[Rfam]
RNA sequence: CCAGGCGGCUGGAUGACCGCUGGCUCACGCGCGAGCGCGGGCUGGAGGAAAGUCCGGGCUCCACGGAAAGACGGUGCCGGCUAAAGGCCGCCGGGACGGGCAACCGCUUCAGGGAAAGUGCCACAGAAAACAAACCGCCGGCGGUUCGCUGCCGGCAAGGGUGAAACGGUGCGGCAAGAGCGCACCGCGCUUCCAGCAAUGGCGGCGGCAGGGCAAACCCCACCGGGAGCAAGGCCUAAUAGGGGUGCUGGCGGCCACCGUUACGUGAGCCGCAGGGGUUUUUCGCCCUGCAACCCGGGUUGGCCGCGAGAGGCGGGCCGUGAGGCCCGUCCCAGAGGAAUGGUCAUCCAGGUGGCGCAAGCUGCUGGACAGAACCCGGCUUACAGGCCGCCUGGCGAU
Numbered sequence: 001c002c003a004g005g006c007g008g009c010u011g012g013a014u015g016a017c018c019g020c021u022g023g024c025u026c027a028c029g030c031g032c033g034a035g036c037g038c039g040g041g042c043u044g045g046a047g048g049a050a051a052g053u054c055c056g057g058g059c060u061c062c063a064c065g066g067a068a069a070g071a072c073g074g075u076g077c078c079g080g081c082u083a084a085a086g087g088c089c090g091c092c093g094g095g096a097c098g099g100g101c102a103a104c105c106g107c108u109u110c111a112g113g114g115a116a117a118g119u120g121c122c123a124c125a126g127a128a129a130a131c132a133a134a135c136c137g138c139c140g141g142c143g144g145u146u147c148g149c150u151g152c153c154g155g156c157a158a159g160g161g162u163g164a165a166a167c168g169g170u171g172c173g174g175c176a177a178g179a180g181c182g183c184a185c186c187g188c189g190c191u192u193c194c195a196g197c198a199a200u201g202g203c204g205g206c207g208g209c210a211g212g213g214c215a216a217a218c219c220c221c222a223c224c225g226g227g228a229g230c231a232a233g234g235c236c237u238a239a240u241a242g243g244g245g246u247g248c249u250g251g252c253g254g255c256c257a258c259c260g261u262u263a264c265g266u267g268a269g270c271c272g273c274a275g276g277g278g279u280u281u282u283u284c285g286c287c288c289u290g291c292a293a294c295c296c297g298g299g300u301u302g303g304c305c306g307c308g309a310g311a312g313g314c315g316g317g318c319c320g321u322g323a324g325g326c327c328c329g330u331c332c333c334a335g336a337g338g339a340a341u342g343g344u345c346a347u348c349c350a351g352g353u354g355g356c357g358c359a360a361g362c363u364g365c366u367g368g369a370c371a372g373a374a375c376c377c378g379g380c381u382u383a384c385a386g387g388c389c390g391c392c393u394g395g396c397g398a399u
Stems, first nucleotide, its partner, number of pairs: 001395010011384001012348007020045007028037001050382003054379005059229004068283003072225005078090004092112001093110003113220002118218002120214003135160002137156008168186006187209001188207004193202003233305004243296004275289005312331008
Record summary:
Shown here is a 399-nucleotide RNA from Rubritepida sp., a member of the family "Bacterial RNase P class A". Ribonuclease P (RNase P) is a ubiquitous endoribonuclease, found in archaea, bacteria and eukarya as well as chloroplasts and mitochondria. The source organism's lineage runs through Bacteria, Pseudomonadota, Acetobacterales, Roseomonadaceae and Rubritepida. The family's consensus secondary structure is taken from published work.